[Rfam]
RNA sequence: UAUGGGGUAGGAAACAAUGCGUUAAGUGUUGAAGGGACGGAAUGUGACCUUCAAACGAAAACCAAUCGGCUUCGACUUGCUGAUUGGUUGCGGUGUUGUUUUCGCAUUCGCCAUU
Numbered sequence: 001u002a003u004g005g006g007g008u009a010g011g012a013a014a015c016a017a018u019g020c021g022u023u024a025a026g027u028g029u030u031g032a033a034g035g036g037a038c039g040g041a042a043u044g045u046g047a048c049c050u051u052c053a054a055a056c057g058a059a060a061a062c063c064a065a066u067c068g069g070c071u072u073c074g075a076c077u078u079g080c081u082g083a084u085u086g087g088u089u090g091c092g093g094u095g096u097u098g099u100u101u102u103c104g105c106a107u108u109c110g111c112c113a114u115u
Base pairs, nucleotide, nucleotide: 002114003113004112005111010103011102012101013100014099015098016097017096018095019094020092021091022090026056027055029054030053031052032051033050034049035048040109041108042107043106044105060089061088062087063086064085065084066083067082068081069080070079

Overview: THF (Tetrahydrofolate) riboswitch aptamer: a 115-nucleotide RNA from Lentilactobacillus buchneri. About the family: Tetrahydrofolate (THF) riboswitch was first reported for Ames et al. as an RNA motif in 5' untranslated (5'-UTR)regions of folate transport and biosynthesis genes in Firmicutes genomes. A reference for the family is Ames et al. (2010), "A eubacterial riboswitch class that senses the coenzyme tetrahydrofolate", Chem Biol.